About this RNA: A member of the RNA family "Mammalian CPEB3 ribozyme" from Erpetoichthys calabaricus, 79 nucleotides long. NCBI's taxonomy places the organism under Eukaryota, Opisthokonta, Gnathostomata, Teleostomi, Erpetoichthys. The match comes from Rfam's covariance-model search (47 bits). The family has 14 seed sequences and 5,706 matches in Rfam 15.1.
[Rfam]
RNA sequence: AUAGUAAAGUUUAGGGGUCACAGUAGGAGUGUUCUCACCGUGACCCCUGUCAGAUAUUACCUAAAUCUGCAAUCCUACU
Dot-bracket structure: .............[[[[[[..((((((((((.......)))]]]]]]...(((((.(.....).)))))...)))))))

The literature on the family includes a 2006 paper in Science by Salehi-Ashtiani et al., "A genomewide search for ribozymes reveals an HDV-like sequence in the human CPEB3 gene".